[Rfam]
RNA sequence: AUCCAAACAGAGAGAAGCUUCGUCGGCUCACGCCGAGGUAUCCGAGUGUUCUUGGCUUGGUCAUUUGAGUGUCCGGUCCACUGCGGGUUUCGAGUCAAGCUGGAGCUGGAAAGACGGAUCAAUCAUUUGGGCGGGAUAUGAUAUUCGGAUCUGUUGACUGGAGGUAUGGGGUGCGAAAGACUAGAUGCCGUGGUAAGGACGUCCUGUUUGACUCAUACUGCAUCCACAGACUUGGUUCACUUCACACAGGCAGAGAGGAUUUCACUCGGCGUCCAGGACGGGACCCAUCUCGUGUUGGAGUCAAAGCUUAGUGCUUGUCUGUCCUGGGGAGCGCAGAGCGACUUGCCCGACUUCUUGUUUUGGGGCGCGCUUCUUCCGUGGUGCUGUGGCGGGUUGUGGACGUGCUUGGGUGUGGAUGUUGACUUUGUUGGUUGGCCUAUCGAGGGACAGACCCUGUGGUGGGUAGUCCUGGGCUGUUCUCCUGUUCUGGUGAUGCAGACUUGAGGCAGCCCCUCCUUUCGGGGG
Dot-bracket structure: .........................................................................................................................................................................................................................................................................................((((((........))).))).((((.....)))).................................................................................................................................................................................................................
A member of the RNA family "Ascomycota telomerase RNA" from Cadophora malorum, 525 nucleotides of a longer RNA. Rfam classes the family as a non-coding RNA gene. The base pairs follow the family's consensus structure. A search with the family's covariance model found it, with a score of 158 bits.